[Rfam]
RNA sequence: UUAAAUUAGGCCAAACCUGUUGUGAGGCAGGGACGGAAAGCCACGGGUCUUUAUUAAAAGACAGCCGGGUUGCAAGGC
Numbered sequence: 001u002u003a004a005a006u007u008a009g010g011c012c013a014a015a016c017c018u019g020u021u022g023u024g025a026g027g028c029a030g031g032g033a034c035g036g037a038a039a040g041c042c043a044c045g046g047g048u049c050u051u052u053a054u055u056a057a058a059a060g061a062c063a064g065c066c067g068g069g070u071u072g073c074a075a076g077g078c
Stems, first nucleotide, its partner, number of pairs: 011036002016031006034064001039071004044067003047062003
Notes:
The record is a 78-nucleotide RNA sequence from Ferrimonas marina, which matches "c-di-GMP-I-GGC riboswitch aptamer" in Rfam. Taxonomically the source falls in Ferrimonas (Bacteria, Pseudomonadota, Gammaproteobacteria, Ferrimonadaceae). Gene Ontology term of the family: cyclic-di-GMP binding.